[Rfam]
Rfam assigns this 77-nucleotide sequence from Smithornis capensis to the family "mir-460 microRNA precursor family".
The source organism's lineage runs through Eukaryota, Dipnotetrapodomorpha, Sauropsida, Archosauria and Smithornis.

RNA sequence: CUCUCCAGCGCCUGCAUUGUACACACUGUGUGUCUGCUCUGGAAAUGCACAGCGCAUGCAAUGUGGAUUCUGUGCGA
Numbered sequence: 001c002u003c004u005c006c007a008g009c010g011c012c013u014g015c016a017u018u019g020u021a022c023a024c025a026c027u028g029u030g031u032g033u034c035u036g037c038u039c040u041g042g043a044a045a046u047g048c049a050c051a052g053c054g055c056a057u058g059c060a061a062u063g064u065g066g067a068u069u070c071u072g073u074g075c076g077a
Base pairs, nucleotide, nucleotide: 012066013065015063016062017061018060019059020058021057024054026052027051028050029049030048031047